[Rfam]
RNA sequence: GUGGGCUACGGGGACAUGAGACCCGUGACCGUGGGCGGCAAGAUCGUGGGCUCCUUGUGUGCCAUCGCCGGGGUGCUCACCAUCGCUCUGCCCGUUCCCGUCAUCGUGUCCAAC
Numbered sequence: 001g002u003g004g005g006c007u008a009c010g011g012g013g014a015c016a017u018g019a020g021a022c023c024c025g026u027g028a029c030c031g032u033g034g035g036c037g038g039c040a041a042g043a044u045c046g047u048g049g050g051c052u053c054c055u056u057g058u059g060u061g062c063c064a065u066c067g068c069c070g071g072g073g074u075g076c077u078c079a080c081c082a083u084c085g086c087u088c089u090g091c092c093c094g095u096u097c098c099c100g101u102c103a104u105c106g107u108g109u110c111c112a113a114c
Stems, first nucleotide, its partner, number of pairs: 001114002004111002007108005013102003018097003037077004049063003
RNA: Potassium channel RNA editing signal